Annotation: This 76-nucleotide RNA from Candida albicans belongs to the Rfam family "bZIP non canonical Hac1/Xbp1 intron". By type it is a small RNA.

[Rfam]
RNA sequence: UCCAACUAAUCAUUCUAUAGCUGAUUUAGCAGCAAUCAGUCUAGCCAGCAGAGCCAAUAGAAUCAUUUCAGUUGGA
Numbered sequence: 001u002c003c004a005a006c007u008a009a010u011c012a013u014u015c016u017a018u019a020g021c022u023g024a025u026u027u028a029g030c031a032g033c034a035a036u037c038a039g040u041c042u043a044g045c046c047a048g049c050a051g052a053g054c055c056a057a058u059a060g061a062a063u064c065a066u067u068u069c070a071g072u073u074g075g076a
Stems, first nucleotide, its partner, number of pairs: 001076007012063005021039006044054002

The literature on the family includes a 2011 paper in RNA Biol by Hooks and Griffiths-Jones, "Conserved RNA structures in the non-canonical Hac1/Xbp1 intron". bZIP intron RNA is a non-canonical intron that was first reported in HAC1 gene in yeast and XBP1 gene in Metazoa. Taxonomically the source falls in Candida (Eukaryota, Opisthokonta, Ascomycota, Serinales).